[Rfam]
RNA sequence: GUCGAGCAUGGUGGUGCAUGCCUGUAGUCCCAGCUAAUUGGGAAGCUGAGGCAGGAGGACCUCUUGAAUCCAGGAGUUCUGGUCUGUAGUGCGCUAUGGCAAUCAGGUGUCUGCACUAAAUUGGGCAUCAAUAUGGUGACCUCCCUGGAGCGGAGGACCACCAGGUUGCCUAAGAAGGGGUGAACCGGCCCAUGUCAUAAAUGGAGCAGGUCAAAACUCCUUUUCUGAUCAGUAGUGGGAUCACACCUGUGAAUAGCCACUGCACUCCAGCCUGGGCAACAUAGUGAGACUCCGUCUCUU
Numbered sequence: 001g002u003c004g005a006g007c008a009u010g011g012u013g014g015u016g017c018a019u020g021c022c023u024g025u026a027g028u029c030c031c032a033g034c035u036a037a038u039u040g041g042g043a044a045g046c047u048g049a050g051g052c053a054g055g056a057g058g059a060c061c062u063c064u065u066g067a068a069u070c071c072a073g074g075a076g077u078u079c080u081g082g083u084c085u086g087u088a089g090u091g092c093g094c095u096a097u098g099g100c101a102a103u104c105a106g107g108u109g110u111c112u113g114c115a116c117u118a119a120a121u122u123g124g125g126c127a128u129c130a131a132u133a134u135g136g137u138g139a140c141c142u143c144c145c146u147g148g149a150g151c152g153g154a155g156g157a158c159c160a161c162c163a164g165g166u167u168g169c170c171u172a173a174g175a176a177g178g179g180g181u182g183a184a185c186c187g188g189c190c191c192a193u194g195u196c197a198u199a200a201a202u203g204g205a206g207c208a209g210g211u212c213a214a215a216a217c218u219c220c221u222u223u224u225c226u227g228a229u230c231a232g233u234a235g236u237g238g239g240a241u242c243a244c245a246c247c248u249g250u251g252a253a254u255a256g257c258c259a260c261u262g263c264a265c266u267c268c269a270g271c272c273u274g275g276g277c278a279a280c281a282u283a284g285u286g287a288g289a290c291u292c293c294g295u296c297u298c299u300u
Stems, first nucleotide, its partner, number of pairs: 001046002004023001006021005028043003048298005054292002061286001063284002069276006079270004085264007093257005104249007111239002114237005122228001124226002127223001129168004134163005141156002144153002170174001176221006187212004195204003
RNA: Metazoan signal recognition particle RNA